[Rfam]
RNA: Small nucleolar RNA SNORD82
Nucleotides: 071
Stems, first nucleotide, its partner, number of pairs: 002071005
Number, partner (000 for none) and nucleotide at each position: 001000u002071g003070c004069g005068u006067a007000c008000a009000u010000g011000a012000u013000g014000a015000g016000c017000a018000u019000u020000a021000a022000g023000g024000g025000a026000c027000u028000u029000a030000a031000u032000a033000c034000u035000g036000a037000u038000g039000u040000a041000u042000u043000u044000g045000a046000u047000g048000u049000u050000a051000c052000c053000u054000u055000u056000a057000a058000u059000u060000c061000a062000g063000c064000u065000g066000a067006u068005g069004u070003g071002u